[Rfam]
RNA sequence: AGGCCAGUAGCUCCAAUGGCUAGAGCGCCGGUCUCCAAAACCGGAUGUUGCAGGUUCGAGUCCUGCCUGGCCUG
Number, nucleotide and partner (000 for none) at each position: 001a073002g072003g071004c070005c069006a068007g067008u000009a000010g026011c025012u024013c023014c000015a000016a000017u000018g000019g000020c000021u000022a000023g013024a012025g011026c010027g000028c044029c043030g042031g041032u040033c000034u000035c000036c000037a000038a000039a000040a032041c031042c030043g029044g028045a000046u000047g000048u000049u000050g066051c065052a064053g063054g062055u000056u000057c000058g000059a000060g000061u000062c054063c053064u052065g051066c050067c007068u006069g005070g004071c003072c002073u001074g000
The record is a 74-nucleotide RNA sequence from Marispirochaeta aestuarii, which matches "tRNA" in Rfam. The family is grouped with related families in Rfam's "tRNA clan". A search with the family's covariance model found it, with a score of 64 bits. The organism belongs to Marispirochaeta, within Bacteria. The family's consensus secondary structure is taken from published work.